[Rfam]
RNA sequence: AUCAGGUCGCAGUUUGCGGCCAGGCCGCGCUUCAGGGCGAAUACGGUCCGGCGUCCGUCGAUAACCUGACGCCACG
Numbered sequence: 001a002u003c004a005g006g007u008c009g010c011a012g013u014u015u016g017c018g019g020c021c022a023g024g025c026c027g028c029g030c031u032u033c034a035g036g037g038c039g040a041a042u043a044c045g046g047u048c049c050g051g052c053g054u055c056c057g058u059c060g061a062u063a064a065c066c067u068g069a070c071g072c073c074a075c076g
Stems, first nucleotide, its partner, number of pairs: 005021006023048005028039004050073006
Rfam assigns this 76-nucleotide sequence from Caulobacter segnis to the family "nhaA-II RNA".
The base pairs follow the family's consensus structure, which is taken from published work.
The source organism's lineage runs through Bacteria, Alphaproteobacteria, Caulobacteraceae, Caulobacter and Caulobacter segnis.
By type it is a cis-regulatory element.